Shown here is a 134-nucleotide sequence from Synaphobranchus kaupii, a member of the family "Small nucleolar RNA SNORA69". The base pairs follow the family's consensus structure, which was predicted with PFOLD. The match comes from Rfam's covariance-model search (80 bits). Its family is annotated with RNA processing and nucleolus in the Gene Ontology. Rfam classes the family as an H/ACA-box small nucleolar RNA. NCBI's taxonomy places the organism under Eukaryota, Opisthokonta, Actinopteri, Synaphobranchinae, Synaphobranchus. U69 is a member of the H/ACA class of small nucleolar RNAs (snoRNAs) which act as guides in the the modification of uridines to pseudouridines.
RNA sequence: AAAGCAGGUUGCAAUUACAGUGCUUCAUUCUGUGGGAGUACUGCCAUUAUCCUGCUGACAGUAACAUGCUGCCGUGGAGUAACAACCUCCUCAGAAUUCCCAUGUGACGAGGAUGCUCUGUGACAGCGACACAU
Dot-bracket structure: ..((((((.........(((((((((........))))))))).......))))))..........(((((.(((((.....((.((((.(((...........))).)))).))..))))).)))))......